[Rfam]
RNA sequence: UGGAUGGUAUUCUGAAAAGAAACUGUACCAGUGAUCAUAAUUUAUUUUCAAAGUAUGAAGCUUAUAUCCAAUAGGAAUAAGACUUAGAG
Numbered sequence: 001u002g003g004a005u006g007g008u009a010u011u012c013u014g015a016a017a018a019g020a021a022a023c024u025g026u027a028c029c030a031g032u033g034a035u036c037a038u039a040a041u042u043u044a045u046u047u048u049c050a051a052a053g054u055a056u057g058a059a060g061c062u063u064a065u066a067u068c069c070a071a072u073a074g075g076a077a078u079a080a081g082a083c084u085u086a087g088a089g
Stems, first nucleotide, its partner, number of pairs: 001030003004026005010021002058085003061081005067076003
The family of this 89-nucleotide RNA sequence from Anaerostipes sp. 992a is "pan motif". Rfam classes the family as a cis-regulatory element. Pairs were carried over by alignment from the consensus structure, which is taken from published work. It scores 54 bits against the family's covariance model.